The record is a 147-nucleotide RNA sequence from Suricata suricatta, which matches "U12 minor spliceosomal RNA" in Rfam. A reference for the family is Tarn and Steitz (1997), "Pre-mRNA splicing: the discovery of a new spliceosome doubles the challenge", Trends Biochem Sci. Its family is annotated with mRNA branch site recognition, pre-mRNA branch point binding and U12 snRNP in the Gene Ontology. The pairing is the family consensus, mapped onto this sequence. It scores 101 bits against the family's covariance model. It is annotated as a spliceosomal small nuclear RNA.
[Rfam]
RNA sequence: GUGCCUUAAAUUUAAAAGUAAGGAAAAUAAUGAUUUGGGGUGACACCUGAACGCUUACUGUUAAUGUGAGAUGAAAUUUUGAGCUGGUAGUUUGCCCUAAGGUAACCUGCCCACUUUGCAGGAAGCCUAGGAGUGGUGGUCUGCCUG
Numbered sequence: 001g002u003g004c005c006u007u008a009a010a011u012u013u014a015a016a017a018g019u020a021a022g023g024a025a026a027a028u029a030a031u032g033a034u035u036u037g038g039g040g041u042g043a044c045a046c047c048u049g050a051a052c053g054c055u056u057a058c059u060g061u062u063a064a065u066g067u068g069a070g071a072u073g074a075a076a077u078u079u080u081g082a083g084c085u086g087g088u089a090g091u092u093u094g095c096c097c098u099a100a101g102g103u104a105a106c107c108u109g110c111c112c113a114c115u116u117u118g119c120a121g122g123a124a125g126c127c128u129a130g131g132a133g134u135g136g137u138g139g140u141c142u143g144c145c146u147g
Stems, first nucleotide, its partner, number of pairs: 004023005034051006054070005084147001086145005092139004097131002100128004106122005